[Rfam]
RNA: mir-26 microRNA precursor family
Organism: Clupea harengus
RNA sequence: CUUGUGCCUGUUUCAAGUAAUCCAGGAUAGGCUUGUUAAGUCGCGGAAAGCCUAUUCGGGAUAACUUGGUUCAGGAGCAAG
Numbered sequence: 001c002u003u004g005u006g007c008c009u010g011u012u013u014c015a016a017g018u019a020a021u022c023c024a025g026g027a028u029a030g031g032c033u034u035g036u037u038a039a040g041u042c043g044c045g046g047a048a049a050g051c052c053u054a055u056u057c058g059g060g061a062u063a064a065c066u067u068g069g070u071u072c073a074g075g076a077g078c079a080a081g
Base pairs, nucleotide, nucleotide: 002080003079004078005077007075008074009073010072014068015067016066017065018064020062021061022060025057026056027055028054029053030052031051032050033049